[Rfam]
RNA sequence: CCGCAAGCCUCCCAGCGUGGGGGUGUCUGGCGUGACCCCCCCAUUCCUGCAGCGCUUGCCAGAGCAGCCCCGGGACGGUUUGAGGCCUCUCCCCGCCCUCACGGGGGGAGGUUAUAGACAUCCCGGACAGCG
Dot-bracket structure: ..((((((.........(((..(.(((......))).)..)))..........))))))...........(((((..........((((((.(((......))).)))))).........))))).......
The record is a 132-nucleotide sequence from Podilymbus podiceps, which matches "Small nucleolar RNA SNORA9" in Rfam. Rfam describes the family as follows. ACA9 is a member of the H/ACA class of snoRNA that guide the sites of modification of uridines to pseudouridines. Its Rfam clan is "SNORA9 clan". Gene Ontology terms of the family: RNA processing and nucleolus. By type it is an H/ACA-box small nucleolar RNA.